[Rfam]
RNA sequence: ACCGUCCUUAUCUGGGGGUUGCGUGGCUGCUCGAUGAACGCGUGGUGAGGGCAGCACUGCUAACGCCUUAGAACAACACAGCGGCGCCCGCUUCGCGCGCGGCGCAAUUUUUGGAACC
Numbered sequence: 001a002c003c004g005u006c007c008u009u010a011u012c013u014g015g016g017g018g019u020u021g022c023g024u025g026g027c028u029g030c031u032c033g034a035u036g037a038a039c040g041c042g043u044g045g046u047g048a049g050g051g052c053a054g055c056a057c058u059g060c061u062a063a064c065g066c067c068u069u070a071g072a073a074c075a076a077c078a079c080a081g082c083g084g085c086g087c088c089c090g091c092u093u094c095g096c097g098c099g100c101g102g103c104g105c106a107a108u109u110u111u112u113g114g115a116a117c118c
Stems, first nucleotide, its partner, number of pairs: 006018004021060003026055007038046002081105003085101002089097003
RNA: U4atac minor spliceosomal RNA
Organism: Calidris pygmaea